[Rfam]
RNA sequence: AAUAAUUUGCCUCUCCGAGCUUUGUCGCCUACCGGUCCUCCCCAUGGUGCAAAGCCAAUGGGUGCAGCUGGAAACGGCGGUGCCUCUCUUUUGGAAAGGGGAGCCUUUUAAGCGGUC
Numbered sequence: 001a002a003u004a005a006u007u008u009g010c011c012u013c014u015c016c017g018a019g020c021u022u023u024g025u026c027g028c029c030u031a032c033c034g035g036u037c038c039u040c041c042c043c044a045u046g047g048u049g050c051a052a053a054g055c056c057a058a059u060g061g062g063u064g065c066a067g068c069u070g071g072a073a074a075c076g077g078c079g080g081u082g083c084c085u086c087u088c089u090u091u092u093g094g095a096a097a098g099g100g101g102a103g104c105c106u107u108u109u110a111a112g113c114g115g116u117c
Base pairs, nucleotide, nucleotide: 003111011103012102013101014100015099016098019055020054021053022052023051024050025049027048028047029046034042035041060085061084062083063082064081065080067078068077069076070075086094087093
This 117-nucleotide RNA sequence from Geomonas silvestris belongs to the Rfam family "Molybdenum/Tungsten riboswitch aptamer (Moco RNA motif)". A search with the family's covariance model found it, with a score of 60 bits. The base pairs follow the family's consensus structure, which is taken from published work. The source organism's lineage runs through Bacteria, Pseudomonadati, Thermodesulfobacteriota, Geobacterales and Geomonas.